[Rfam]
RNA: Guanidine-II riboswitch aptamer (mini-ykkC)
RNA sequence: CAGGCGGGACGACCCGCACGCACGCACGACGCCUCCUCGGGACGACCCGC
Numbered sequence: 001c002a003g004g005c006g007g008g009a010c011g012a013c014c015c016g017c018a019c020g021c022a023c024g025c026a027c028g029a030c031g032c033c034u035c036c037u038c039g040g041g042a043c044g045a046c047c048c049g050c
Stems, first nucleotide, its partner, number of pairs: 001020001004017005038049004